This 311-nucleotide sequence from Allobosea sp. Root483D1 belongs to the Rfam family "5' ureB small RNA".
A reference for the family is Wen et al. (2013), "Helicobacter pylori 5'ureB-sRNA, a cis-encoded antisense small RNA, negatively regulates ureAB expression by transcription termination", J Bacteriol.
The family has 13 seed sequences and 4,812 matches in Rfam 15.1.
The match comes from Rfam's covariance-model search (134 bits).
Its family is annotated with negative regulation of gene expression in the Gene Ontology.
NCBI's taxonomy places the organism under Bacteria, Pseudomonadati, Pseudomonadota, Alloboseaceae, Allobosea.
[Rfam]
RNA sequence: CAUCCUCGAUCUGCUGCGGACAGAUGAAAUGGAUAUGGCUGUCAAAGCCGCCGGCGGUGACGAUCUUGCCCUCGCCGGCGAUGACCUCGGUGCCUGGGCCGACAAUGAUCGUCUCAUCGGGCGCGAAAUUGCCGAAGCCGGCCUGGAUGUCGGGGUUGCCGGCCUUGCCGAUGGCGCAGAUGCGCCCGGCCCUGAUGCCGAUAUCUGCUUUGACGAUGCCCCAAUGGUCAAGGAUCAGCGCAUUGGUGAUGACGGUGUCGACGGCGCCGUCGGCAUUGCGGACCUGGCUCUGGCCCAUGCCGUCGCGGAUG
Number, nucleotide and partner (000 for none) at each position: 001c311002a310003u309004c000005c307006u000007c305008g304009a303010u000011c179012u178013g177014c176015u000016g175017c174018g076019g075020a000021c000022a072023g071024a000025u000026g000027a000028a000029a000030u053031g052032g051033a000034u050035a000036u000037g048038g000039c000040u045041g000042u000043c000044a000045a040046a000047g000048c037049c000050g034051c032052c031053g030054g000055c000056g000057g069058u068059g067060a000061c000062g000063a000064u000065c000066u000067u059068g058069c057070c000071c023072u022073c000074g000075c019076c018077g169078g168079c000080g000081a165082u000083g163084a000085c161086c000087u000088c000089g000090g159091u158092g157093c000094c155095u154096g000097g151098g150099c149100c000101g000102a000103c145104a000105a144106u000107g142108a000109u140110c000111g138112u137113c000114u000115c000116a000117u000118c000119g000120g000121g000122c000123g000124c000125g000126a000127a000128a000129u000130u000131g000132c000133c000134g000135a000136a000137g112138c111139c000140g109141g000142c107143c000144u105145g103146g000147a000148u000149g099150u098151c097152g000153g000154g095155g094156u000157u092158g091159c090160c000161g085162g000163c083164c000165u081166u000167g000168c078169c077170g000171a000172u000173g000174g017175c016176g014177c013178a012179g011180a000181u000182g000183c000184g294185c000186c293187c292188g291189g000190c000191c000192c000193u287194g000195a285196u000197g283198c281199c280200g000201a000202u000203a000204u000205c000206u242207g241208c240209u000210u238211u237212g236213a000214c000215g000216a000217u000218g000219c000220c000221c000222c000223a000224a000225u000226g000227g000228u000229c000230a000231a000232g000233g000234a000235u000236c212237a211238g210239c000240g208241c207242a206243u000244u278245g277246g276247u000248g000249a000250u000251g271252a270253c000254g000255g267256u266257g265258u000259c000260g000261a000262c000263g000264g000265c257266g256267c255268c000269g000270u252271c251272g000273g000274c000275a000276u246277u245278g244279c000280g199281g198282a000283c197284c000285u195286g000287g193288c000289u000290c000291u188292g187293g186294c184295c000296c000297a000298u000299g000300c000301c000302g000303u009304c008305g007306c000307g005308g000309a003310u002311g001